[Rfam]
RNA sequence: ACUUGUGCGGUGAUGAAGCUAUUUGUGGACUAGAGUUUCUGACAUUGGGCUCUUCUUCCCAUUAAGUCUGACGACAAACCCUUGGCUGUCUGAGCACAAAU
Numbered sequence: 001a002c003u004u005g006u007g008c009g010g011u012g013a014u015g016a017a018g019c020u021a022u023u024u025g026u027g028g029a030c031u032a033g034a035g036u037u038u039c040u041g042a043c044a045u046u047g048g049g050c051u052c053u054u055c056u057u058c059c060c061a062u063u064a065a066g067u068c069u070g071a072c073g074a075c076a077a078a079c080c081c082u083u084g085g086c087u088g089u090c091u092g093a094g095c096a097c098a099a100a101u
Stems, first nucleotide, its partner, number of pairs: 001101001003099006036073001038071002043066001044063001046061003
RNA: Small nucleolar RNA Z157/R69/R10